[Rfam]
RNA sequence: AAAAAGGGCCUCCAUCAUAGGUACAUGAUGACCAGUUCAUCACUAAAAUGACUGGGUGGAAUGGCAAUCAAGACAUUUCAGAGGCAUAAUAUUUGAGCACGGGACAGUCGGCUACAAAUAUUGGCUGAC
Numbered sequence: 001a002a003a004a005a006g007g008g009c010c011u012c013c014a015u016c017a018u019a020g021g022u023a024c025a026u027g028a029u030g031a032c033c034a035g036u037u038c039a040u041c042a043c044u045a046a047a048a049u050g051a052c053u054g055g056g057u058g059g060a061a062u063g064g065c066a067a068u069c070a071a072g073a074c075a076u077u078u079c080a081g082a083g084g085c086a087u088a089a090u091a092u093u094u095g096a097g098c099a100c101g102g103g104a105c106a107g108u109c110g111g112c113u114a115c116a117a118a119u120a121u122u123g124g125c126u127g128a129c
Base pairs, nucleotide, nucleotide: 008085009084010083011082012081013030014029015028016027017026032055033054034053035052036051037050040048057080058079059078060077061076062075063074107129108128109127110126111125115123116122117121
Record summary
Shown here is a 129-nucleotide RNA from Trichobilharzia regenti, a member of the family "U11 spliceosomal RNA". A reference for the family is Montzka and Steitz (1988), "Additional low-abundance human small nuclear ribonucleoproteins: U11, U12, etc", Proc Natl Acad Sci U S A. Pairs were carried over by alignment from the consensus structure, which is taken from published work. A search with the family's covariance model found it, with a score of 63 bits.